[Rfam]
RNA sequence: AACAAUUUGUCCCGCGUCCCACAGCGUUUUAAAAAAGUCCCUAUUUUUGAUCUUUCCAAAAAUAGGGACUUUUUAAAUGCUGUGGGACGCGGGACAAAUUGUUAA
Number, nucleotide and partner (000 for none) at each position: 001a103002a102003c101004a100005a099006u098007u097008u096009g095010u094011c093012c092013c091014g090015c089016g088017u087018c086019c085020c084021a083022c082023a081024g080025c079026g078027u077028u076029u075030u000031a073032a072033a071034a000035a070036a000037g000038u000039c000040c000041c000042u000043a000044u000045u000046u000047u000048u000049g000050a000051u000052c000053u000054u000055u000056c000057c000058a000059a000060a000061a000062a000063u000064a000065g000066g000067g000068a000069c000070u035071u033072u032073u031074u000075a029076a028077a027078u026079g025080c024081u023082g022083u021084g020085g019086g018087a017088c016089g015090c014091g013092g012093g011094a010095c009096a008097a007098a006099u005100u004101g003102u002103u001104a000105a000
RNA: mir-9261 microRNA precursor family